The record is a 133-nucleotide RNA sequence from Clostridium sp. DL-VIII, which matches "c-di-AMP riboswitch aptamer (ydaO/yuaA leader)" in Rfam.
This family represents a conserved RNA structure found upstream of the ydaO and yuaA genes in Bacillus subtilis and related genes in other bacteria. The ydaO/yuaA element is thought to act as a genetic 'off' switch for the ydaO and yuaA genes in its native state.
RNA sequence: AUAUUGGUAGCGCUGAAUCAAUUUGAACGGGAGAACCAAUUAUUGGGGUUAAUCUUAUCAGUAUGAUAAGUAGGGUUAAUUUUCUUCAAUCCGAAUCCGUCAGCUAAUCUCGUAAGCGUUGAAGAGAAGUUUU
Numbered sequence: 001a002u003a004u005u006g007g008u009a010g011c012g013c014u015g016a017a018u019c020a021a022u023u024u025g026a027a028c029g030g031g032a033g034a035a036c037c038a039a040u041u042a043u044u045g046g047g048g049u050u051a052a053u054c055u056u057a058u059c060a061g062u063a064u065g066a067u068a069a070g071u072a073g074g075g076u077u078a079a080u081u082u083u084c085u086u087c088a089a090u091c092c093g094a095a096u097c098c099g100u101c102a103g104c105u106a107a108u109c110u111c112g113u114a115a116g117c118g119u120u121g122a123a124g125a126g127a128a129g130u131u132u133u
Stems, first nucleotide, its partner, number of pairs: 011118004018026003027113006037045002046098003054070004073092004